[Rfam]
bZIP non canonical Hac1/Xbp1 intron: a 74-nucleotide sequence from Lasius niger.
RNA sequence: GGCUGCGCUGCACCUUUACCAGGAUCUGCAGUAUCCUUUGAUAACCCUCUGCCGCAGGGUGGGUCAGCACAGCC
Numbered sequence: 001g002g003c004u005g006c007g008c009u010g011c012a013c014c015u016u017u018a019c020c021a022g023g024a025u026c027u028g029c030a031g032u033a034u035c036c037u038u039u040g041a042u043a044a045c046c047c048u049c050u051g052c053c054g055c056a057g058g059g060u061g062g063g064u065c066a067g068c069a070c071a072g073c074c
Stems, first nucleotide, its partner, number of pairs: 001074005007068001010065001012064003021037005044060005
A search with the family's covariance model found it, with a score of 43 bits. The family's RNA type in Rfam is small RNA. The organism belongs to Lasius, within Eukaryota. About the family: bZIP intron RNA is a non-canonical intron that was first reported in HAC1 gene in yeast and XBP1 gene in Metazoa.